[Rfam]
RNA sequence: GGAUCCAUCUUACCUUACAGUGCUGGAUUGUACUUAUGUGGUUCUAACACUGUCUGGUAACGAUGUUUCC
Numbered sequence: 001g002g003a004u005c006c007a008u009c010u011u012a013c014c015u016u017a018c019a020g021u022g023c024u025g026g027a028u029u030g031u032a033c034u035u036a037u038g039u040g041g042u043u044c045u046a047a048c049a050c051u052g053u054c055u056g057g058u059a060a061c062g063a064u065g066u067u068u069c070c
Base pairs, nucleotide, nucleotide: 002069003068006065007064008063009062010060011059012058013057014056017053018052019051020050021049022048024046025045026044027043